[Rfam]
RNA sequence: GCACCUGAACCUUUCCUGUUCCUCACUGCCUCAUGCAGGUGUGAGGACAGAUGUUGCUACAGUAAGAACAGAGGAAAUACAGACAGGUGGUUUGCCUUUUGUCUUGGGACUCCUCACUACCACAUCAAAAAAA
Numbered sequence: 001g002c003a004c005c006u007g008a009a010c011c012u013u014u015c016c017u018g019u020u021c022c023u024c025a026c027u028g029c030c031u032c033a034u035g036c037a038g039g040u041g042u043g044a045g046g047a048c049a050g051a052u053g054u055u056g057c058u059a060c061a062g063u064a065a066g067a068a069c070a071g072a073g074g075a076a077a078u079a080c081a082g083a084c085a086g087g088u089g090g091u092u093u094g095c096c097u098u099u100u101g102u103c104u105u106g107g108g109a110c111u112c113c114u115c116a117c118u119a120c121c122a123c124a125u126c127a128a129a130a131a132a133a
Base pairs, nucleotide, nucleotide: 001057002056003055005053013047014046015045017043018042019041021039022038071126072125073123082115083114086111087110088109095107096106
A member of the RNA family "Small nucleolar RNA SNORA55" from Erinaceus europaeus, 133 nucleotides long. The match comes from Rfam's covariance-model search (72 bits). The family has 29 seed sequences and 1,476 matches in Rfam 15.1. Rfam describes the family as follows. ACA55 is a member of the H/ACA class of snoRNA that guide the sites of modification of uridines to pseudouridines. The family's RNA type in Rfam is H/ACA-box small nucleolar RNA. NCBI's taxonomy places the organism under Eukaryota, Opisthokonta, Chordata, Mammalia, Erinaceus. Pairs were carried over by alignment from the consensus structure, which was predicted with PFOLD.